[Rfam]
RNA sequence: CUCUUAUCGAGAGAGGCGGAGGGACUGGCCCGUUGAUGCCCGGCAACCGUCAAGUAAGCGAACUUGAGAAGGUGCCAAAUCCUGCAAAGAAUAAUCUUUGACAGAUGAGAG
Numbered sequence: 001c002u003c004u005u006a007u008c009g010a011g012a013g014a015g016g017c018g019g020a021g022g023g024a025c026u027g028g029c030c031c032g033u034u035g036a037u038g039c040c041c042g043g044c045a046a047c048c049g050u051c052a053a054g055u056a057a058g059c060g061a062a063c064u065u066g067a068g069a070a071g072g073u074g075c076c077a078a079a080u081c082c083u084g085c086a087a088a089g090a091a092u093a094a095u096c097u098u099u100g101a102c103a104g105a106u107g108a109g110a111g
Base pairs, nucleotide, nucleotide: 001111002110003109004108005107006106007105008104013041015040016039017038021031022030023029025084027082028081042076043075044074045073047072048071050067051066052065053064054063080103085100086099087098088097089096090095
The family of this 111-nucleotide RNA from Halobacillus andaensis is "SAM riboswitch aptamer (S box leader)". Lineage of the source: Bacteria > Bacillati > Bacillota > Bacillaceae > Halobacillus.